Overview: This 83-nucleotide sequence from Canis lupus belongs to the Rfam family "mir-2114 microRNA precursor family". Rfam's curators put it in the seed alignment. Pairs were carried over by alignment from the consensus structure, which was predicted with RNAalifold. NCBI's taxonomy places the organism under Eukaryota, Eumetazoa, Carnivora, Canidae, Canis lupus.
[Rfam]
RNA sequence: GGCCUCCAGGCUUCUAGUCCCUUCCUUGAAGGAUCGGCAAGUCACACGCAGAGCCUCAAGCAAGGGACUUCCAGCUGGUGGCU
Numbered sequence: 001g002g003c004c005u006c007c008a009g010g011c012u013u014c015u016a017g018u019c020c021c022u023u024c025c026u027u028g029a030a031g032g033a034u035c036g037g038c039a040a041g042u043c044a045c046a047c048g049c050a051g052a053g054c055c056u057c058a059a060g061c062a063a064g065g066g067a068c069u070u071c072c073a074g075c076u077g078g079u080g081g082c083u
Base pairs, nucleotide, nucleotide: 002082003081004080006078007077008076010075011074012073016069017068018067019066020065021064022063023062025060026059027058028057029056031055032054034052035051
Dot-bracket structure: .(((.(((.(((...((((((((.(((((.((.((...............)).))))))).))))))))...)))))).))).